[Rfam]
RNA sequence: UCUGAAUAAUGGCAAAAUCAUCGAAAGGUGAUGACGCAAAGCUAUAGGGGCUAUCCAACGCCAGCCAGCUGCCAAA
Numbered sequence: 001u002c003u004g005a006a007u008a009a010u011g012g013c014a015a016a017a018u019c020a021u022c023g024a025a026a027g028g029u030g031a032u033g034a035c036g037c038a039a040a041g042c043u044a045u046a047g048g049g050g051c052u053a054u055c056c057a058a059c060g061c062c063a064g065c066c067a068g069c070u071g072c073c074a075a076a
Stems, first nucleotide, its partner, number of pairs: 012037002017032006040070004047066002049062003
Record summary
A member of the RNA family "c-di-GMP-I riboswitch aptamer" from Rossellomorea aquimaris, 76 nucleotides long. The base pairs follow the family's consensus structure, which is taken from published work. It scores 66 bits against the family's covariance model. The organism belongs to Rossellomorea, within Bacteria.